Rfam assigns this 86-nucleotide sequence from Chunga burmeisteri to the family "mir-135 microRNA precursor family". The organism belongs to Chunga, within Eukaryota. For this family Rfam cites "Identification of tissue-specific microRNAs from mouse" (Lagos-Quintana et al., Curr Biol, 2002). The family's consensus secondary structure was predicted with PFOLD.
[Rfam]
RNA sequence: GGCCUGCUGUAUUGUAUGGCUUUUUAUUCCUAUGUGAUUAUACAUCCCACUUCAUAUAGGGAUUGAAGCCGUGCAAUACGCUGGCA
Numbered sequence: 001g002g003c004c005u006g007c008u009g010u011a012u013u014g015u016a017u018g019g020c021u022u023u024u025u026a027u028u029c030c031u032a033u034g035u036g037a038u039u040a041u042a043c044a045u046c047c048c049a050c051u052u053c054a055u056a057u058a059g060g061g062a063u064u065g066a067a068g069c070c071g072u073g074c075a076a077u078a079c080g081c082u083g084g085c086a
Base pairs, nucleotide, nucleotide: 002085003084004083006081007080009079010078011077012076013075014074015073016072017071018070019069020068021067022066023065026063027062028061029060030059031058032057033056034055035054036053037052